The family of this 291-nucleotide RNA sequence from Lichenifustis flavocetrariae is "5' ureB small RNA".
For this family Rfam cites "Helicobacter pylori 5'ureB-sRNA, a cis-encoded antisense small RNA, negatively regulates ureAB expression by transcription termination" (Wen et al., J Bacteriol, 2013).
RNA sequence: UGGUCUGAUUGUUCGGGCGAGCCGAGAUGGGCGUGCGACUCGACCGCGCCAGCCGUGACGAUAAACCCGGCGCCGGAGACCGGCGACGUCGUGUGACCCACCACCAUGUCGGGAUGCACCCCCGGCAUGACAUCCGGGUUACCGGCCUUGCCGAUCCCGACGAUGCGACCAUCGCGGAUGCCGAUGUCGGCCUUGACGAUGCCCGCGACCGCAUCGACGAUGGUCGCAUUCUUGAUGACGAUAUCGAGGAUUUUGUCCGAGGACUUCAGAUAGCCGUUGAUGCCCUCGCCA
Numbered sequence: 001u002g003g004u005c006u007g008a009u010u011g012u013u014c015g016g017g018c019g020a021g022c023c024g025a026g027a028u029g030g031g032c033g034u035g036c037g038a039c040u041c042g043a044c045c046g047c048g049c050c051a052g053c054c055g056u057g058a059c060g061a062u063a064a065a066c067c068c069g070g071c072g073c074c075g076g077a078g079a080c081c082g083g084c085g086a087c088g089u090c091g092u093g094u095g096a097c098c099c100a101c102c103a104c105c106a107u108g109u110c111g112g113g114a115u116g117c118a119c120c121c122c123c124g125g126c127a128u129g130a131c132a133u134c135c136g137g138g139u140u141a142c143c144g145g146c147c148u149u150g151c152c153g154a155u156c157c158c159g160a161c162g163a164u165g166c167g168a169c170c171a172u173c174g175c176g177g178a179u180g181c182c183g184a185u186g187u188c189g190g191c192c193u194u195g196a197c198g199a200u201g202c203c204c205g206c207g208a209c210c211g212c213a214u215c216g217a218c219g220a221u222g223g224u225c226g227c228a229u230u231c232u233u234g235a236u237g238a239c240g241a242u243a244u245c246g247a248g249g250a251u252u253u254u255g256u257c258c259g260a261g262g263a264c265u266u267c268a269g270a271u272a273g274c275c276g277u278u279g280a281u282g283c284c285c286u287c288g289c290c291a
Base pairs, nucleotide, nucleotide: 001291002290003289006288007287008286009163010162011161012160013159015157016074017073018072019071028051029050030049032048033047037044055067075152076151077148078147080145081144088142089141091139092138094136095134096133102129106128107127108126109125110124112122113121168277169276170273175269177267178266180264181262182261190227191226194223204216205215230260231259237253238252241251242250
Dot-bracket structure: (((..((((((((.(((((........(((.((...(......)..)))))...(...........)...))))((((.((......((.((.(((.....(...(((((.((.......)).))))))...)).).)).)).)).))..))....).)))))....(((....(.((.(((.......((..(.........((.........))......)..))..((.....((..((.......)))).....)))).).)).)...)..))........))))))